Alphaproteobacterial sRNA ar35: a 142-nucleotide sequence from Rhizobium sp. BK376. On this family, see del Val et al., RNA Biol 2012: "A survey of sRNA families in alpha-proteobacteria".
RNA sequence: AUCGGCAUUGCUGGUGAGCGCUGGAAUAAACUGUUGCUCGCAGUGCUGGCGUCGCUUCUUGCUUUUGACCACGGAUGUACUGGCAGGGGUGUAAAGCGACGGUGAGGAAGGUCGGUGCGAUUUCGCCCCGGCCUUUUUUGUU
Number, nucleotide and partner (000 for none) at each position: 001a000002u000003c048004g047005g046006c045007a044008u043009u042010g000011c000012u000013g000014g000015u000016g039017a038018g037019c036020g035021c000022u000023g000024g000025a000026a000027u000028a000029a000030a000031c000032u000033g000034u000035u020036g019037c018038u017039c016040g000041c000042a009043g008044u007045g006046c005047u004048g003049g000050c000051g100052u099053c098054g097055c096056u095057u094058c000059u000060u091061g090062c089063u088064u000065u000066u085067g084068a000069c083070c082071a081072c000073g000074g000075a000076u000077g000078u000079a000080c000081u071082g070083g069084c067085a066086g000087g000088g063089g062090u061091g060092u000093a000094a057095a056096g055097c054098g053099a052100c051101g000102g141103u140104g139105a138106g137107g136108a135109a134110g133111g132112u131113c130114g129115g128116u000117g126118c125119g124120a000121u000122u000123u000124c119125g118126c117127c000128c115129c114130g113131g112132c111133c110134u109135u108136u107137u106138u105139u104140g103141u102142u000